[Rfam]
RNA: Bacterial RNase P class A
Organism: Conexibacter woesei
RNA sequence: GGUGCGAGACAAGCAGUCGCGGAGGUGCCGUAGAAGCCUUCGAGGAAAGUCCGGACAUCACAGGGCAGGGUGGUCGGUAACGCCGACCCGGGGAAACCCGCGGGAAAGUGCCACAGAAACACACCGCCUACGUCCGCAGCUUCACGUGGGCUGCGGGCCGGCAAGGGUGAAAAGGUGCGGUAAGAGCGCACCGGCGUCGCGGUGACGCGGCGCGUCCAGGCAAACCCCACCCGAUGCAAGGUCAAGCCGGACCGCUUGCAGGCUGCCCGCCAAGGUCCAGGUCGGCCGCACAGAUGGAUGGCUGCUCACGACAGAAUCCGGCUUAUCGUCUCGCUAAGGAA
Numbered sequence: 001g002g003u004g005c006g007a008g009a010c011a012a013g014c015a016g017u018c019g020c021g022g023a024g025g026u027g028c029c030g031u032a033g034a035a036g037c038c039u040u041c042g043a044g045g046a047a048a049g050u051c052c053g054g055a056c057a058u059c060a061c062a063g064g065g066c067a068g069g070g071u072g073g074u075c076g077g078u079a080a081c082g083c084c085g086a087c088c089c090g091g092g093g094a095a096a097c098c099c100g101c102g103g104g105a106a107a108g109u110g111c112c113a114c115a116g117a118a119a120c121a122c123a124c125c126g127c128c129u130a131c132g133u134c135c136g137c138a139g140c141u142u143c144a145c146g147u148g149g150g151c152u153g154c155g156g157g158c159c160g161g162c163a164a165g166g167g168u169g170a171a172a173a174g175g176u177g178c179g180g181u182a183a184g185a186g187c188g189c190a191c192c193g194g195c196g197u198c199g200c201g202g203u204g205a206c207g208c209g210g211c212g213c214g215u216c217c218a219g220g221c222a223a224a225c226c227c228c229a230c231c232c233g234a235u236g237c238a239a240g241g242u243c244a245a246g247c248c249g250g251a252c253c254g255c256u257u258g259c260a261g262g263c264u265g266c267c268c269g270c271c272a273a274g275g276u277c278c279a280g281g282u283c284g285g286c287c288g289c290a291c292a293g294a295u296g297g298a299u300g301g302c303u304g305c306u307c308a309c310g311a312c313a314g315a316a317u318c319c320g321g322c323u324u325a326u327c328g329u330c331u332c333g334c335u336a337a338g339g340a341a
Base pairs, nucleotide, nucleotide: 004334005333006332007331008330009329010328011326012306013305014304015303016302017301018300020042021041022040023039024038025037026036047324048323049322051321052320053319054318055317056236057235058234059233063268064267065266066265068232069231070230071229072228073087074086075085076084077083088102089100090099091098092097103227104226108225109224110221111220112219124166125165126162127161128160132159134157135156174192175191176190177189178188179187193216194213195212196211197210198209199208200207201206240287241286242285243284249278250277251276252275253274261271262270263269